[Rfam]
RNA sequence: ACCUGAUAAAGUCAAGCUACUUGGAAGGGUAUGACGCAAAGCUAUUAACCUAAGUCCUGAUUUACCGAACAUGGUCGUAAAGUCGUCAGA
Numbered sequence: 001a002c003c004u005g006a007u008a009a010a011g012u013c014a015a016g017c018u019a020c021u022u023g024g025a026a027g028g029g030u031a032u033g034a035c036g037c038a039a040a041g042c043u044a045u046u047a048a049c050c051u052a053a054g055u056c057c058u059g060a061u062u063u064a065c066c067g068a069a070c071a072u073g074g075u076c077g078u079a080a081a082g083u084c085g086u087c088a089g090a
Stems, first nucleotide, its partner, number of pairs: 013036001018031005041083003045080003048075003055069001057067001
RNA: c-di-GMP-I riboswitch aptamer